[Rfam]
Rfam assigns this 74-nucleotide RNA sequence from Alligator mississippiensis to the family "Mammalian CPEB3 ribozyme". Lineage of the source: Eukaryota > Teleostomi > Sarcopterygii > Archosauria > Alligator.

RNA sequence: UCGCAAGUUCAAGAUCAUAGCAGAAGUGCUCGCAGCGCGGCCUGUCAGAUUCCAAGGAAUCUGCGUAUUCUGCU
Numbered sequence: 001u002c003g004c005a006a007g008u009u010c011a012a013g014a015u016c017a018u019a020g021c022a023g024a025a026g027u028g029c030u031c032g033c034a035g036c037g038c039g040g041c042c043u044g045u046c047a048g049a050u051u052c053c054a055a056g057g058a059a060u061c062u063g064c065g066u067a068u069u070c071u072g073c074u
Base pairs, nucleotide, nucleotide: 013042015040016039019074020073021072022071023070024069025068026038027037028036046063047062048061049060050059051058052057